[Rfam]
Small nucleolar RNA SNORA14: a 137-nucleotide RNA from Scyliorhinus torazame. The family has 18 seed sequences and 848 matches in Rfam 15.1. About the family: ACA14 is a member of the H/ACA class of snoRNA that guide the sites of modification of uridines to pseudouridines.
RNA sequence: AUGCAUUCUUUUAAACCCCCUGGUUGUUUUGUAUCACAGCAACGAGGACAAGAAAAGAGUGCUAAAUAAAAUCUCCAGAGAACUCCAAAGUGCUGAGUUUCAUUUAUGCUUCUCACUAUUUCACGUCUCUGACAGCU
Dot-bracket structure: ..((((...(((......(((.(.(((...........))).).)))...))).....))))...(.....((...(((.........((((..(.(...........).)..))))........)))..))....)
Numbered sequence: 001a002u003g004c005a006u007u008c009u010u011u012u013a014a015a016c017c018c019c020c021u022g023g024u025u026g027u028u029u030u031g032u033a034u035c036a037c038a039g040c041a042a043c044g045a046g047g048a049c050a051a052g053a054a055a056a057g058a059g060u061g062c063u064a065a066a067u068a069a070a071a072u073c074u075c076c077a078g079a080g081a082a083c084u085c086c087a088a089a090g091u092g093c094u095g096a097g098u099u100u101c102a103u104u105u106a107u108g109c110u111u112c113u114c115a116c117u118a119u120u121u122c123a124c125g126u127c128u129c130u131g132a133c134a135g136c137u
Stems, first nucleotide, its partner, number of pairs: 003062004010053003019047003023043001025041003066137001072132002077128003089117004095111001097109001

Pairs were carried over by alignment from the consensus structure, which was predicted with RNAfold. Rfam classes the family as an H/ACA-box small nucleolar RNA.